Rfam assigns this 46-nucleotide sequence from Oryzias latipes to the family "Histone 3' UTR stem-loop".

RNA sequence: CAAAAGGCCCUUUUCAGGGCCACCCACUCCUUCAUCUGAGAGCUGU
Numbered sequence: 001c002a003a004a005a006g007g008c009c010c011u012u013u014u015c016a017g018g019g020c021c022a023c024c025c026a027c028u029c030c031u032u033c034a035u036c037u038g039a040g041a042g043c044u045g046u
Stems, first nucleotide, its partner, number of pairs: 006021006
Background:
It scores 39 bits against the family's covariance model.